[Rfam]
RNA sequence: AUUCAUCUUCGGGGUAGGGUGUAAUUCCCAACCGGCAGUAAUCUAAGCCUGCGACGACAACGUAUUAAUUUUUGCUUUGUCUUGAUUCAGUGAGAGUCUGAAGCCGACAGUAUAGUCUGGAUGGGAGAAGAUGGAG
Numbered sequence: 001a002u003u004c005a006u007c008u009u010c011g012g013g014g015u016a017g018g019g020u021g022u023a024a025u026u027c028c029c030a031a032c033c034g035g036c037a038g039u040a041a042u043c044u045a046a047g048c049c050u051g052c053g054a055c056g057a058c059a060a061c062g063u064a065u066u067a068a069u070u071u072u073u074g075c076u077u078u079g080u081c082u083u084g085a086u087u088c089a090g091u092g093a094g095a096g097u098c099u100g101a102a103g104c105c106g107a108c109a110g111u112a113u114a115g116u117c118u119g120g121a122u123g124g125g126a127g128a129a130g131a132u133g134g135a136g
Stems, first nucleotide, its partner, number of pairs: 003134008017029003031116002033106002035052004047104002056080001086102005108119003
Background:
The family of this 136-nucleotide RNA sequence from Staphylococcus epidermidis is "FMN riboswitch aptamer (RFN element)". The family's consensus secondary structure is taken from published work. The organism belongs to Staphylococcus, within Bacteria.